This 122-nucleotide RNA sequence from Roseitalea porphyridii belongs to the Rfam family "Rhizobiales sRNA Atu_C8". On this family, see Wilms et al., RNA Biol 2012: "Deep sequencing uncovers numerous small RNAs on all four replicons of the plant pathogen Agrobacterium tumefaciens". The family's RNA type in Rfam is small RNA. NCBI's taxonomy places the organism under Bacteria, Alphaproteobacteria, Hyphomicrobiales, Ahrensiaceae, Roseitalea. A search with the family's covariance model found it, with a score of 86 bits.
[Rfam]
RNA sequence: GAUGAUGACCAAGCCGCUUAUCGUAGUAGGAUCGCGCAUGGGCAAGGUGGCGUAGCCACCGGGCGAGACCUCCCAUGCGCGACGACCGGGCUCCCUUGUGGGGCCUUUUUUAUUGCCUUUCG
Numbered sequence: 001g002a003u004g005a006u007g008a009c010c011a012a013g014c015c016g017c018u019u020a021u022c023g024u025a026g027u028a029g030g031a032u033c034g035c036g037c038a039u040g041g042g043c044a045a046g047g048u049g050g051c052g053u054a055g056c057c058a059c060c061g062g063g064c065g066a067g068a069c070c071u072c073c074c075a076u077g078c079g080c081g082a083c084g085a086c087c088g089g090g091c092u093c094c095c096u097u098g099u100g101g102g103g104c105c106u107u108u109u110u111u112a113u114u115g116c117c118u119u120u121c122g
Base pairs, nucleotide, nucleotide: 009026029118030117032115033081034080035079036078037077038076039075040074041073042072046060047059048058049057050056063069088106089105090104091103092102093101094100